[Rfam]
The family of this 162-nucleotide RNA sequence from Trichomalopsis sarcophagae is "U1 spliceosomal RNA". Clan: U1 clan. The family's consensus secondary structure is taken from published work. Rfam's curators write: U1 is a small nuclear RNA (snRNA) component of the spliceosome (involved in pre-mRNA splicing). Its 5' end forms complementary base pairs with the 5' splice junction, thus defining the 5' donor site of an intron. There are significant differences in sequence and secondary structure between metazoan and yeast U1 snRNAs, the latter being much longer (568 nucleotides as compared to 164 nucleotides in human). By type it is a spliceosomal small nuclear RNA. The literature on the family includes a 2009 paper in Nature by Pomeranz Krummel et al., "Crystal structure of human spliceosomal U1 snRNP at 5.5 A resolution".
RNA sequence: AUACUUACCUGGCGUAGAGGAUACCGUGAUCAUUAAGGCGGUUCCUCCAGGGUGAGGCUCCUCCAUUGCACUUCGGUAGAGCUGACCUCUGCGAAUAUCCCUAAUGUGGAUAUCUCGAACGUAUAAUUUUUGGUAGCCGGGACUGCGUUCGCGCUAUCCCGA
Numbered sequence: 001a002u003a004c005u006u007a008c009c010u011g012g013c014g015u016a017g018a019g020g021a022u023a024c025c026g027u028g029a030u031c032a033u034u035a036a037g038g039c040g041g042u043u044c045c046u047c048c049a050g051g052g053u054g055a056g057g058c059u060c061c062u063c064c065a066u067u068g069c070a071c072u073u074c075g076g077u078a079g080a081g082c083u084g085a086c087c088u089c090u091g092c093g094a095a096u097a098u099c100c101c102u103a104a105u106g107u108g109g110a111u112a113u114c115u116c117g118a119a120c121g122u123a124u125a126a127u128u129u130u131u132g133g134u135a136g137c138c139g140g141g142a143c144u145g146c147g148u149u150c151g152c153g154c155u156a157u158c159c160c161g162a
Stems, first nucleotide, its partner, number of pairs: 012122004017047005023042005049090004054086001056083003061079002063076002092117003095113003099109002138161005145154003